[Rfam]
RNA sequence: UUGUGACUUCCCCGCGGGUGGCUCCCGUCCGGUACCGGCCCUGACUUCACUUCCCCGAAGCCAGGUCCGCCCGGGAGGGAACCUCCCGUUGGGACACCGAUAUAUC
Numbered sequence: 001u002u003g004u005g006a007c008u009u010c011c012c013c014g015c016g017g018g019u020g021g022c023u024c025c026c027g028u029c030c031g032g033u034a035c036c037g038g039c040c041c042u043g044a045c046u047u048c049a050c051u052u053c054c055c056c057g058a059a060g061c062c063a064g065g066u067c068c069g070c071c072c073g074g075g076a077g078g079g080a081a082c083c084u085c086c087c088g089u090u091g092g093g094a095c096a097c098c099g100a101u102a103u104a105u106c
Base pairs, nucleotide, nucleotide: 010093011092012091014089015088016087020083021082023080024079025078026077028075029074030073031072032071036069037068038067040065041064042063043062045060046059047058
The family of this 106-nucleotide RNA from Tessaracoccus defluvii is "mraW RNA".
NCBI's taxonomy places the organism under Bacteria, Bacillati, Propionibacteriales, Propionibacteriaceae, Tessaracoccus.
The family's consensus secondary structure is taken from published work.
It scores 59 bits against the family's covariance model.